[Rfam]
This 95-nucleotide RNA from Tessaracoccus aquimaris belongs to the Rfam family "TPP riboswitch aptamer (THI element)". The organism belongs to Tessaracoccus, within Bacteria. Rfam links the family to the GO term thiamine pyrophosphate binding. For this family Rfam cites "Structural basis for gene regulation by a thiamine pyrophosphate-sensing riboswitch" (Serganov et al., Nature, 2006). Pairs were carried over by alignment from the consensus structure, which is taken from published work.
Nucleotides: 095
Base pairs, nucleotide, nucleotide: 006083007082009080010079011045012044013043014042016039017031018030019029020028021027051076052075053074057070058069059068060067
Number, partner (000 for none) and nucleotide at each position: 001000u002000g003000g004000a005000c006083g007082g008000c009080g010079c011045c012044g013043g014042g015000g016039u017031g018030c019029c020028c021027u022000a023000c024000u025000g026000g027021a028020g029019g030018g031017c032000u033000g034000a035000g036000a037000u038000c039016a040000c041000a042014c043013c044012c045011g046000c047000a048000a049000u050000a051076c052075c053074u054000g055000a056000u057070c058069u059068a060067g061000g062000u063000c064000g065000u066000g067060c068059u069058a070057g071000c072000g073000a074053a075052g076051g077000g078000a079010g080009c081000c082007c083006u084000g085000u086000g087000a088000a089000c090000c091000a092000g093000g094000u095000c